RNA sequence: GGUGUCAAAGGCAAAUCGCUCGUGAGGGCGAGGCGCAAAGCCACGGGGCUCCGCGGAUCGGAGCCGGCCGGGCUGCCACUU
Numbered sequence: 001g002g003u004g005u006c007a008a009a010g011g012c013a014a015a016u017c018g019c020u021c022g023u024g025a026g027g028g029c030g031a032g033g034c035g036c037a038a039a040g041c042c043a044c045g046g047g048g049c050u051c052c053g054c055g056g057a058u059c060g061g062a063g064c065c066g067g068c069c070g071g072g073c074u075g076c077c078a079c080u081u
Stems, first nucleotide, its partner, number of pairs: 001081001003078002011036002016031006034067001039074004044070003047065003
RNA: c-di-GMP-I-GGC riboswitch aptamer
Organism: Solirubrobacter ginsenosidimutans